The family of this 88-nucleotide sequence from Streptomyces qinglanensis is "sodF sRNA". The base pairs follow the family's consensus structure. A reference for the family is Kim et al. (2014), "Inverse regulation of Fe- and Ni-containing SOD genes by a Fur family regulator Nur through small RNA processed from 3'UTR of the sodF mRNA", Nucleic Acids Res. A search with the family's covariance model found it, with a score of 75 bits. The family's RNA type in Rfam is small RNA. The source organism's lineage runs through Bacteria, Actinomycetota, Actinomycetes, Kitasatosporales and Streptomyces.
RNA sequence: CCUUCCACCCUCGUGAUCGUCUUCUCACCUUUCCCGGGGGCGGAGGACGGCGGGGCCCCUGUGUGGACGUGACACGCAGGGGCCCCGC
Numbered sequence: 001c002c003u004u005c006c007a008c009c010c011u012c013g014u015g016a017u018c019g020u021c022u023u024c025u026c027a028c029c030u031u032u033c034c035c036g037g038g039g040g041c042g043g044a045g046g047a048c049g050g051c052g053g054g055g056c057c058c059c060u061g062u063g064u065g066g067a068c069g070u071g072a073c074a075c076g077c078a079g080g081g082g083c084c085c086c087g088c
Stems, first nucleotide, its partner, number of pairs: 001046003005043002008040004013035001015033002019029001050088016